The family of this 75-nucleotide sequence from Lupinus angustifolius is "Small nucleolar RNA snoR53Y". The organism belongs to Lupinus, within Eukaryota. Rfam links the family to the GO terms RNA processing and nucleolus. On this family, see Brown et al., RNA 2001: "Multiple snoRNA gene clusters from Arabidopsis". Its Rfam clan is "snoR53 clan".

[Rfam]
RNA sequence: AUUCCCAAUGAUGUUGGUUUACUACCAUGCUAAUGCUGAUAACAUGAUUAAUACUAUCAUUAUACUGAGGGAAUA
Number, nucleotide and partner (000 for none) at each position: 001a074002u073003u072004c071005c070006c000007a000008a000009u000010g000011a000012u000013g000014u000015u000016g000017g000018u000019u000020u000021a000022c000023u000024a000025c000026c000027a000028u000029g000030c000031u000032a000033a000034u000035g000036c000037u000038g000039a000040u000041a000042a000043c000044a000045u000046g000047a000048u000049u000050a000051a000052u000053a000054c000055u000056a000057u000058c000059a000060u000061u000062a000063u000064a000065c000066u000067g000068a000069g000070g005071g004072a003073a002074u001075a000